[Rfam]
Nucleotides: 355
Stems, first nucleotide, its partner, number of pairs: 001318003009315001011198004016192001018191003022085003026081003030078002032074009046062006089185002092181005100174007107151001111147008122133003159166002203244006212238002217233004255314006263292012296303002320347003329340004
Number, partner (000 for none) and nucleotide at each position: 001318g002317g003316c004000u005000u006000a007000a008000a009315g010000g011198g012197c013196g014195c015000g016192u017000a018191g019190g020189c021000g022085g023084a024083a025000g026081g027080g028079c029000g030078c031077g032074u033073c034072g035071g036070c037069g038068u039067u040066g041000a042000a043000a044000u045000c046062c047061c048060c049059c050058g051057g052000c053000u054000c055000a056000a057051c058050c059049g060048g061047g062046g063000a064000a065000g066040c067039g068038g069037c070036g071035u072034c073033g074032a075000a076000a077031c078030g079028g080027c081026c082000g083024u084023u085022c086000u087000g088000g089185a090184g091000g092181g093180g094179c095178g096177u097000a098000g099000a100174g101173g102172g103171a104170c105169u106168c107151g108000g109000a110000a111147c112146u113145u114144c115143c116142g117141g118140u119000g120000g121000a122133g123132c124131g125000g126000u127000g128000a129000u130000a131124u132123g133122c134000g135000u136000u137000g138000a139000g140118a141117u142116c143115g144114g145113a146112a147111g148000g149000a150000a151107c152000g153000c154000c155000c156000g157000u158000g159166g160165c161000g162000a163000a164000a165160g166159c167000g168106g169105a170104g171103u172102c173101c174100u175000g176000g177096a178095c179094g180093c181092u182000u183000a184090c185089u186000g187000a188000c189020g190019c191018u192016g193000a194000g195014g196013c197012g198011c199000g200000a201000a202000a203244g204243c205242c206241a207240g208239g209000g210000g211000a212238g213237c214000a215000a216000a217233c218232g219231g220230g221000a222000u223000u224000a225000g226000a227000u228000a229000c230220c231219c232218c233217g234000g235000u236000a237213g238212u239208c240207c241206u242205g243204g244203c245000u246000g247000u248000a249000a250000a251000c252000g253000a254000u255314g256313g257312g258311c259310a260309c261000u262000u263292g264291g265290c266289a267288g268287u269286g270285g271284g272283u273282u274281c275000g276000u277000c278000g279000a280000u281274g282273g283272g284271u285270c286269c287268a288267c289266u290265g291264c292263c293000g294000g295000a296303g297302g298000g299000a300000a301000a302297c303296c304000g305000u306000g307000a308000a309260g310259u311258g312257c313256c314255c315009c316003g317002c318001c319000u320347g321346g322345g323000g324000a325000g326000u327000a328000u329340g330339g331338u332337c333000g334000c335000a336000a337332g338331g339330c340329u341000g342000a343000a344000a345322c346321u347320c348000a349000a350000a351000g352000g353000a354000a355000u
The record is a 355-nucleotide part of an RNA from Isosphaera pallida, which matches "Bacterial small subunit ribosomal RNA" in Rfam. The base pairs follow the family's consensus structure, which is taken from published work. Taxonomically the source falls in Isosphaera pallida (Bacteria, Pseudomonadati, Planctomycetia, Isosphaera). The family has 99 seed sequences and 42,628 matches in Rfam 15.1.